[Rfam]
RNA sequence: CUCUGGAGAGUGCUGUGAUGUUAUAUUACAGCCACCAAAGGGGAAAGCCUAAAAUGUGAAUGGAAUUUCAAUUUUAGGUGUAACUUUCAGGUGCAAGGACAGGG
Numbered sequence: 001c002u003c004u005g006g007a008g009a010g011u012g013c014u015g016u017g018a019u020g021u022u023a024u025a026u027u028a029c030a031g032c033c034a035c036c037a038a039a040g041g042g043g044a045a046a047g048c049c050u051a052a053a054a055u056g057u058g059a060a061u062g063g064a065a066u067u068u069c070a071a072u073u074u075u076a077g078g079u080g081u082a083a084c085u086u087u088c089a090g091g092u093g094c095a096a097g098g099a100c101a102g103g104g
Stems, first nucleotide, its partner, number of pairs: 001104005012032006034092003038087001041086003047079009
Annotation: Rfam assigns this 104-nucleotide RNA from Solibacillus sp. R5-41 to the family "Glycine riboswitch aptamer". From the family's description: This family represents the bacterial glycine riboswitch. Glycine riboswitches usually consist of two metabolite-binding aptamers domains with similar structures in tandem. The aptamers cooperatively bind glycine to regulate the expression of downstream genes. In Bacillus subtilis, this riboswitch is found upstream of the gcvT operon which controls glycine degradation.